[Rfam]
RNA: SAM riboswitch aptamer (S box leader)
RNA sequence: GGUUUAUAAAGAAGAGGGGAGAGACCAGGCUCAACGAACCUCUAGCAACCUCCGCAACCGUGGAAAGGUGCUAAUUCCUGGCCUAAAGCAAUUUAGGACAUAUAAGUU
Numbered sequence: 001g002g003u004u005u006a007u008a009a010a011g012a013a014g015a016g017g018g019g020a021g022a023g024a025c026c027a028g029g030c031u032c033a034a035c036g037a038a039c040c041u042c043u044a045g046c047a048a049c050c051u052c053c054g055c056a057a058c059c060g061u062g063g064a065a066a067g068g069u070g071c072u073a074a075u076u077c078c079u080g081g082c083c084u085a086a087a088g089c090a091a092u093u094u095a096g097g098a099c100a101u102a103u104a105a106g107u108u
Base pairs, nucleotide, nucleotide: 001108002107003106004105005104006103007102008101013043014042015041016040017039021032022031023030026080027079028078029077044072045071046070047069049068050067051064052063053062054061076100082097083096084095085094086093087092